[Rfam]
RNA sequence: GUACUCCCUCCGUCCCAUAAUAUAAGACGUUUUUUGACAUUACACUAGAGUCAAAAAACGUCUUACAUUAUGGGACGGAGGGAAUAU
Numbered sequence: 001g002u003a004c005u006c007c008c009u010c011c012g013u014c015c016c017a018u019a020a021u022a023u024a025a026g027a028c029g030u031u032u033u034u035u036g037a038c039a040u041u042a043c044a045c046u047a048g049a050g051u052c053a054a055a056a057a058a059c060g061u062c063u064u065a066c067a068u069u070a071u072g073g074g075a076c077g078g079a080g081g082g083a084a085u086a087u
Stems, first nucleotide, its partner, number of pairs: 003085001005083001007081005013075005019069003023065016040048002
Dot-bracket structure: ..(.(.(((((.(((((.(((.((((((((((((((((.((.....)).)))))))))))))))).))).))))).))))).).)..

The family of this 87-nucleotide RNA from Triticum turgidum is "MIR1120/MIR1122 microRNA precursor family". The family's consensus secondary structure was predicted with RNAalifold. The organism belongs to Triticum turgidum, within Eukaryota. Its family is annotated with RISC complex and miRNA-mediated post-transcriptional gene silencing in the Gene Ontology. The match comes from Rfam's covariance-model search (86 bits). For this family Rfam cites "Cloning and characterization of microRNAs from wheat (Triticum aestivum L.)" (Yao et al., Genome Biol, 2007).